[Rfam]
The family of this 68-nucleotide RNA from Ursus americanus is "mir-290 microRNA precursor family". A reference for the family is Houbaviy et al. (2003), "Embryonic stem cell-specific MicroRNAs", Dev Cell.
RNA sequence: GUGACACUCAAAAAAUGGCGGCACUUCCCUUCUUAGACCAGAAAGUGCCCCCACAGUUUGAGUGGCAC
Numbered sequence: 001g002u003g004a005c006a007c008u009c010a011a012a013a014a015a016u017g018g019c020g021g022c023a024c025u026u027c028c029c030u031u032c033u034u035a036g037a038c039c040a041g042a043a044a045g046u047g048c049c050c051c052c053a054c055a056g057u058u059u060g061a062g063u064g065g066c067a068c
Stems, first nucleotide, its partner, number of pairs: 005064008016053003020049006026042002
The family is grouped with related families in Rfam's "mir-290 clan".